[Rfam]
RNA sequence: GGUGGUAGACCCACCAAAGGCGAUUUACAGGAAUAGCCUUUAAACCACUCUACGGUGCUAUGACAGUAAUGUUUUGGUAUUGAACGGCUAGAGAAAAGGCUCCGCUGGUACGGAGUCAGGU
Dot-bracket structure: (((((.....)))))((((((.((((....)))).))))))....(.((((((((.(((..(((......)))..))).)).....).)))))....((((((........))))))..).
Overview: This 121-nucleotide RNA from Microscilla marina belongs to the Rfam family "Group II catalytic intron D1-D4-2". Pairs were carried over by alignment from the consensus structure. Rfam 15.1 lists 1,231 matches to the family in 625 species. Rfam links the family to the GO term Group II intron splicing. About the family: Group II introns are found in rRNA, tRNA and mRNA of organelles in fungi, plants and protists, and also in mRNA in bacteria.